[Rfam]
RNA: Guanidine-II riboswitch aptamer (mini-ykkC)
Organism: Luteimonas sp. J16
RNA sequence: GCACGGGGACGACCCCGCGCCGCGCGCAUCCACGGGGACGACCCC
Numbered sequence: 001g002c003a004c005g006g007g008g009a010c011g012a013c014c015c016c017g018c019g020c021c022g023c024g025c026g027c028a029u030c031c032a033c034g035g036g037g038a039c040g041a042c043c044c045c
Stems, first nucleotide, its partner, number of pairs: 001020002004017005034045004